[Rfam]
RNA sequence: CAUAGUAGCAGCGUUAGUCGGGUUAGAACCCCGACGGCCUUACGAGUAAGGGUUCCUCGGCAAUGCUGAUCAGCCGAGGGUUAGCCGGUCCUAAGUCUCACCGCAACUCGAAUGAGACAACAGGGAAACAGGUUAAUACUCCUGUGCCAUCAUGCAGUGAAACCGACGCCUUGGGAACCAUCGAGCCGGGCUUUCGCCCGGUCGAAUCCAGGAACUUCGUGGAAGCCGUAACGGCACGAAGCGAACGAAGCUGGAGAUAGCGCAAGUCGGUGUUACCUAGGGCCCGUGAAAAGGGAGCAUGAUGUCCGUACCGAGAUCCGACACAGGUACUCUGGCGGUGAAAGCCAAGGUCUGU
Dot-bracket structure: ................((((((.......))))))((((....((((..((...((((((...((.....)).))))))......(((.((...((((((.((.....))..))))))....))...(((((........)))))..((((((((.......((...((((((((...(((((.(((((........)))))....((((.....(((((....(((.....))).....)))))......)))).....(....).)))))...)))))))).........))..)))))))).)))..)).....((......)).))))((((.......)))).))))...
Archaeal large subunit ribosomal RNA: a 355-nucleotide part of an RNA from Halorussus gelatinilyticus.
The family's consensus secondary structure is taken from published work.